[Rfam]
Bacteroidales-1 6S-Bacteroidales RNA suggested: a 190-nucleotide RNA sequence from Prevotella sp. CAG:1031. A search with the family's covariance model found it, with a score of 111 bits.
RNA sequence: CACCACAUCAAAGUAGAUUGGGAAACUCAUCAAUUACAAAUAUAAUUCCGAGGCAAGCUUAGUCGGCCGAUGGCGGGCCCCAGCCUCUGACGAGGCGCCGGUUUUUCCGGCCAGGCGGAUUACAAAGGGCGGCGAGCACUCAAAUCCUGUCUUUCGGAGUUUCAUCGCAUCCUUUGGUGUGGCCCUUACG
Numbered sequence: 001c002a003c004c005a006c007a008u009c010a011a012a013g014u015a016g017a018u019u020g021g022g023a024a025a026c027u028c029a030u031c032a033a034u035u036a037c038a039a040a041u042a043u044a045a046u047u048c049c050g051a052g053g054c055a056a057g058c059u060u061a062g063u064c065g066g067c068c069g070a071u072g073g074c075g076g077g078c079c080c081c082a083g084c085c086u087c088u089g090a091c092g093a094g095g096c097g098c099c100g101g102u103u104u105u106u107c108c109g110g111c112c113a114g115g116c117g118g119a120u121u122a123c124a125a126a127g128g129g130c131g132g133c134g135a136g137c138a139c140u141c142a143a144a145u146c147c148u149g150u151c152u153u154u155c156g157g158a159g160u161u162u163c164a165u166c167g168c169a170u171c172c173u174u175u176g177g178u179g180u181g182g183c184c185c186u187u188a189c190g
Stems, first nucleotide, its partner, number of pairs: 057137003062133004067128002071124002078118002081115001083091001085089001094112003